[Rfam]
A member of the RNA family "MIR6152 microRNA precursor family" from Nicotiana sylvestris, 94 nucleotides long. Gene Ontology terms of the family: miRNA-mediated post-transcriptional gene silencing and RISC complex. Rfam 15.1 lists 5,807 matches to the family in 3 species. NCBI's taxonomy places the organism under Eukaryota, Tracheophyta, Pentapetalae, Solanales, Nicotiana. The family's consensus secondary structure was predicted with RNAalifold.

RNA sequence: UGGACAUAUUAUUGUAUUCAACUGUAUUCACAGUGUGAAACAGGGGAUUAUACUGUUUUUAAACGGAAAGUGAAUCAAUUAACAUAUAACUCAA
Dot-bracket structure: ..((.....((.(((.((.((.((.((((((..((((((((((.........)))))))...)))....)))))))).)))).)))))..))..